This 103-nucleotide sequence from Geotrichum candidum belongs to the Rfam family "Small nucleolar RNA snR66". It scores 76 bits against the family's covariance model. The base pairs follow the family's consensus structure. Its family is annotated with nucleolus and RNA processing in the Gene Ontology.
[Rfam]
RNA sequence: AUGAUUACUUACAUGAUGAGAUACUAAUGCAACAUAGAGUCAAGCUCAGAGGAAUCAAAGAUUCCAGCGACGAGAAUUGCUAUUAUAUUCUGAUUGUAAUCAU
Numbered sequence: 001a002u003g004a005u006u007a008c009u010u011a012c013a014u015g016a017u018g019a020g021a022u023a024c025u026a027a028u029g030c031a032a033c034a035u036a037g038a039g040u041c042a043a044g045c046u047c048a049g050a051g052g053a054a055u056c057a058a059a060g061a062u063u064c065c066a067g068c069g070a071c072g073a074g075a076a077u078u079g080c081u082a083u084u085a086u087a088u089u090c091u092g093a094u095u096g097u098a099a100u101c102a103u
Stems, first nucleotide, its partner, number of pairs: 001103006
For this family Rfam cites "A computational screen for methylation guide snoRNAs in yeast" (Lowe and Eddy, Science, 1999).